[Rfam]
RNA sequence: AAAUGGUCAAGUGACUGGUGGAAACAUCGAAAGAUGCGUAGGAUAACCUACAGGGAGCUUGAUUAUAUAUUUAGAAAUUGCCGACCGCCUGGGCACGUAUG
Numbered sequence: 001a002a003a004u005g006g007u008c009a010a011g012u013g014a015c016u017g018g019u020g021g022a023a024a025c026a027u028c029g030a031a032a033g034a035u036g037c038g039u040a041g042g043a044u045a046a047c048c049u050a051c052a053g054g055g056a057g058c059u060u061g062a063u064u065a066u067a068u069a070u071u072u073a074g075a076a077a078u079u080g081c082c083g084a085c086c087g088c089c090u091g092g093g094c095a096c097g098u099a100u101g
Stems, first nucleotide, its partner, number of pairs: 003066010015054002017089005039050004079095004
The record is a 101-nucleotide RNA from Intestinibacter bartlettii, which matches "ZMP/ZTP riboswitch aptamer (pfl RNA motif)" in Rfam.
A search with the family's covariance model found it, with a score of 50 bits.
The family has 185 seed sequences and 3,295 matches in Rfam 15.1.
Taxonomically the source falls in Intestinibacter bartlettii (Bacteria, Bacillota, Peptostreptococcales, Intestinibacter).